RNA sequence: UCGAAGCUCCAUCUAUGUACAAAUCAAUAAGACUUUGGUCUGAUUGUAUAUGAGUGUUUGGACUAACAAGGAGCAAUAGCUUUCCUCUUGAGAAGAGGAAAGCUAUUGCUCAUUU
Numbered sequence: 001u002c003g004a005a006g007c008u009c010c011a012u013c014u015a016u017g018u019a020c021a022a023a024u025c026a027a028u029a030a031g032a033c034u035u036u037g038g039u040c041u042g043a044u045u046g047u048a049u050a051u052g053a054g055u056g057u058u059u060g061g062a063c064u065a066a067c068a069a070g071g072a073g074c075a076a077u078a079g080c081u082u083u084c085c086u087c088u089u090g091a092g093a094a095g096a097g098g099a100a101a102g103c104u105a106u107u108g109c110u111c112a113u114u115u
Base pairs, nucleotide, nucleotide: 008027011024012023065115068114069113071111072110073109074108075107076106077105078104079103081101082100083099085097086096087095088094089093
A member of the RNA family "Plastid-psbA-1 3UTR RNA" from Cynara cardunculus, 115 nucleotides long. By type it is a cis-regulatory element. Pairs were carried over by alignment from the consensus structure, which was predicted with LocARNA. The match comes from Rfam's covariance-model search (72 bits). NCBI's taxonomy places the organism under Eukaryota, Streptophytina, Asteraceae, Cardueae, Cynara cardunculus subsp. cardunculus. A reference for the family is Richter et al. (2023), "Retrograde signaling in plants: A critical review focusing on the GUN pathway and beyond", Plant Commun. Rfam describes the family as follows. Plastid psbA-1 is a non-coding RNA (ncRNA) present in plastids.